The family of this 113-nucleotide RNA from Caballeronia glathei is "Burkholderia sRNA Bp1_Cand684_SIPHT". It scores 45 bits against the family's covariance model. Rfam 15.1 lists 176 matches to the family in 44 species.

RNA sequence: AAGAAAGUGACUGCCGCCCCGCACAGGGGCGAGCUAAUAGACCAAAGACAAAACAAGUCUCAUAGGAGCACAAGCGCAUCAAACGGCGUAAACCCCACAACCUCGAGCGCUAG
Number, nucleotide and partner (000 for none) at each position: 001a000002a000003g000004a000005a000006a000007g000008u000009g000010a000011c000012u078013g077014c076015c031016g030017c029018c028019c027020c026021g000022c000023a000024c000025a000026g020027g019028g018029g017030c016031g015032a000033g000034c000035u000036a000037a000038u000039a000040g000041a000042c000043c000044a000045a000046a000047g000048a000049c000050a000051a000052a000053a000054c000055a000056a000057g071058u070059c000060u000061c000062a000063u000064a000065g000066g000067a000068g000069c000070a058071c057072a000073a000074g000075c000076g014077c013078a012079u000080c000081a000082a000083a000084c000085g000086g000087c000088g000089u000090a000091a000092a000093c000094c000095c000096c000097a000098c105099a000100a000101c000102c000103u000104c000105g098106a000107g000108c000109g000110c000111u000112a000113g000